[Rfam]
RNA sequence: CUGACCGGUACGCAUGGGUCGACGUUUGAACAAACGAGCCCAUUCCACAUGCUCUAAAAAGUGCACGUGGAUGCGUUAUUGUCAG
Dot-bracket structure: (((((....((((.((((....(((((....)))))..)))).(((((.(((.((....)).))).))))).))))....)))))
Shown here is an 85-nucleotide RNA sequence, a member of the family "L4-Archaeoglobi ribosomal protein leades". The base pairs follow the family's consensus structure, which is taken from published work. It is annotated as a cis-regulatory leader.